[Rfam]
RNA: skipping-rope RNA
Organism: [Clostridium] fimetarium
RNA sequence: GAUUAUUGAGUUUCGGAAAUGGCUCCCGAUGCACUCGCAAGAGUACCUGAGAUGAUGGAUACGCCGCCCAUCCAAAAAAU
Number, nucleotide and partner (000 for none) at each position: 001g080002a000003u078004u077005a000006u075007u074008g073009a000010g000011u000012u000013u029014c028015g027016g026017a000018a000019a000020u066021g065022g064023c063024u000025c000026c016027c015028g014029a013030u000031g000032c049033a044034c043035u042036c041037g000038c000039a000040a000041g036042a035043g034044u033045a000046c000047c000048u000049g032050a000051g000052a000053u000054g072055a071056u070057g069058g068059a000060u000061a000062c000063g023064c022065c021066g020067c000068c058069c057070a056071u055072c054073c008074a007075a006076a000077a004078a003079a000080u001